[Rfam]
RNA sequence: GUUCAAUAUGGCAAUGAUGUCUGCCCUGAACCGCCCACCAAUUCAUUGGAGCUGAUGACGUCUAUUACUGG
Numbered sequence: 001g002u003u004c005a006a007u008a009u010g011g012c013a014a015u016g017a018u019g020u021c022u023g024c025c026c027u028g029a030a031c032c033g034c035c036c037a038c039c040a041a042u043u044c045a046u047u048g049g050a051g052c053u054g055a056u057g058a059c060g061u062c063u064a065u066u067a068c069u070g071g
Base pairs, nucleotide, nucleotide: 010025011024012023013022016062017061018060019059020058021057033052034051036049
Shown here is a 71-nucleotide RNA from Flavobacterium cerinum, a member of the family "Fluoride riboswitch aptamer (crcB RNA motif)". The source organism's lineage runs through Bacteria, Pseudomonadati, Bacteroidota, Flavobacteriales and Flavobacterium.